[Rfam]
RNA sequence: CUCUAAUCUCUGAUCUUUAUCUAAGGUCAAGUUGAACAUCUGUUUGUAACAGUUAAAUAUCUUUUACGUCUUUGAUUUGAAGAUGUCAUAUUAAACAGACUUUUGGGGCCAAAAGAUGGGUUGGAACUUUUCCUGUCUAUCCUAUGCAUCUGUCUGUUGUAGCAGUGUCUCUAGAAGCAGCACACCAA
Numbered sequence: 001c002u003c004u005a006a007u008c009u010c011u012g013a014u015c016u017u018u019a020u021c022u023a024a025g026g027u028c029a030a031g032u033u034g035a036a037c038a039u040c041u042g043u044u045u046g047u048a049a050c051a052g053u054u055a056a057a058u059a060u061c062u063u064u065u066a067c068g069u070c071u072u073u074g075a076u077u078u079g080a081a082g083a084u085g086u087c088a089u090a091u092u093a094a095a096c097a098g099a100c101u102u103u104u105g106g107g108g109c110c111a112a113a114a115g116a117u118g119g120g121u122u123g124g125a126a127c128u129u130u131u132c133c134u135g136u137c138u139a140u141c142c143u144a145u146g147c148a149u150c151u152g153u154c155u156g157u158u159g160u161a162g163c164a165g166u167g168u169c170u171c172u173a174g175a176a177g178c179a180g181c182a183c184a185c186c187a188a
Base pairs, nucleotide, nucleotide: 007026008025009024012021013020014019047066048065049064051062052061068084069083070082071081072080073079074078113143115141116140117139118138119137120136123134124133126131146183149180153175154174155173156172
RNA: U2 spliceosomal RNA
Organism: Scytalopus superciliaris